The record is a 577-nucleotide part of an RNA from uncultured marine crenarchaeote KM3-153-F8, which matches "Archaeal large subunit ribosomal RNA" in Rfam. Gene Ontology terms of the family: structural constituent of ribosome and ribosome. Clan: LSU clan.
Nucleotides: 577
Base pairs, nucleotide, nucleotide: 001573002572003571004570005569006568007567008566010565011564012563014560015559022394023393024392025391027390028389029386030385031384032383033382035188036187037186038185042180043179044178045177046176047175048174051154053152054151055150056149058147059146060145061144062143063142064141065140068137078136079135080134081133082132085119086118087117097110098109099108100107101106158168159167160166161165191204192202193201194200205227206226207225208224209223210222230333231332236288237287238286239285240284241283242268243267245263246262247261248260249259250258269278270277293319294318295317296316297315298314299313300312301311321330323328344372345371346370347369348368350367352366353365354364355363403444404443405442407441408438409437410436411435412434413433414432418428419427455530456528457527458526459525460522461519462518463517464516465515468493469492472487473486474485475484476483496508497507498506499505536554537553538552539551540549541548542547
Number, partner (000 for none) and nucleotide at each position: 001573c002572u003571u004570c005569c006568a007567u008566c009000g010565g011564g012563a013000a014560g015559a016000g017000a018000a019000g020000u021000c022394c023393c024392u025391g026000u027390g028389g029386a030385g031384c032383u033382u034000u035188a036187c037186u038185g039000c040000a041000g042180c043179u044178u045177g046176u047175u048174g049000u050000u051154g052000u053152g054151a055150u056149g057000c058147g059146g060145u061144u062143c063142u064141a065140a066000u067000u068137u069000c070000a071000g072000a073000g074000a075000g076000u077000a078136a079135c080134u081133g082132g083000u084000a085119g086118c087117c088000g089000u090000u091000a092000u093000g094000u095000g096000c097110a098109u099108a100107c101106u102000u103000u104000c105000g106101g107100g108099u109098a110097u111000g112000u113000a114000a115000u116000a117087g118086g119085c120000a121000a122000a123000a124000g125000u126000g127000u128000a129000a130000c131000a132082c133081c134080a135079g136078u137068a138000u139000c140065u141064u142063a143062g144061a145060g146059u147058u148000a149056c150055g151054u152053c153000u154051c155000u156000a157000a158168c159167c160166c161165u162000u163000u164000a165161a166160g167159g168158g169000g170000a171000c172000a173000u174048c175047g176046g177045c178044a179043g180042g181000u182000g183000g184000g185038c186037a187036g188035u189000u190000c191204g192202g193201c194200u195000g196000g197000g198000g199000c200194g201193g202192c203000a204191c205227c206226c207225c208224c209223u210222u211000g212000a213000a214000a215000a216000a217000a218000u219000a220000u221000c222210g223209a224208g225207g226206g227205g228000g229000c230333u231332c232000u233000a234000a235000g236288g237287u238286u239285g240284g241283c242268u243267c244000a245263a246262g247261u248260g249259g250258g251000u252000c253000a254000g255000g256000a257000a258250u259249c260248c261247a262246c263245u264000u265000a266000u267243g268242a269278g270277g271000g272000c273000a274000a275000g276000g277270c278269c279000a280000a281000a282000a283241g284240c285239c286238a287237g288236c289000u290000u291000g292000a293319c294318a295317g296316g297315a298314u299313u300312c301311u302000g303000a304000a305000c306000a307000a308000u309000a310000a311301a312300g313299a314298a315297u316296u317295c318294u319293g320000c321330u322000g323328c324000g325000a326000a327000a328323g329000c330321a331000u332231g333230a334000c335000c336000u337000a338000g339000c340000g341000a342000u343000c344372c345371u346370u347369c348368a349000a350367g351000u352366c353365c354364c355363c356000a357000c358000u359000g360000u361000u362000g363355g364354g365353g366352g367350c368348u369347g370346g371345a372344g373000g374000u375000g376000a377000c378000a379000g380000a381000a382033a383032a384031g385030u386029u387000a388000c389028c390027c391025c392024a393023g394022g395000g396000g397000u398000a399000a400000c401000a402000g403444g404443c405442u406000c407441g408438u409437c410436g411435c412434g413433g414432g415000c416000a417000a418428g419427a420000g421000c422000u423000c424000u425000a426000a427419u428418c429000g430000a431000c432414c433413c434412c435411g436410c437409g438408g439000u440000u441407u442405g443404g444403u445000a446000c447000c448000u449000c450000g451000a452000u453000g454000u455530c456528g457527g458526c459525u460522c461519u462518u463517c464516c465515u466000a467000u468493c469492c470000u471000g472487g473486u474485u475484c476483u477000g478000c479000a480000g481000c482000a483476g484475g485474a486473g487472c488000c489000a490000a491000g492469g493468g494000u495000g496508g497507g498506g499505c500000u501000g502000c503000u504000c505499g506498c507497c508496c509000a510000u511000u512000a513000a514000a515465a516464g517463g518462g519461a520000a521000c522460g523000u524000g525459a526458g527457c528456u529000g530455g531000g532000u533000u534000u535000a536554g537553a538552c539551c540549g541548u542547c543000g544000u545000g546000a547542g548541a549540c550000a551539g552538g553537u554536c555000g556000g557000u558000c559015u560014c561000u562000a563012u564011c565010u566008g567007a568006u569005g570004g571003a572002a573001g574000u575000g576000g577000a